[Rfam]
RNA sequence: AACGAGCUUCAGUGGUCUGGAGUGCAGGCUUCAAACCUGUAGCUGACUGACGUCAGAGUGGUUCAAUUCCACCUUU
Dot-bracket structure: ((.(..((((((....))))))((((((.......)))))).(((((....))))).((((.......))))).))
The family of this 76-nucleotide RNA from Octopus sinensis is "Selenocysteine transfer RNA". Pairs were carried over by alignment from the consensus structure, which is taken from published work. It scores 56 bits against the family's covariance model. The organism belongs to Octopus, within Eukaryota.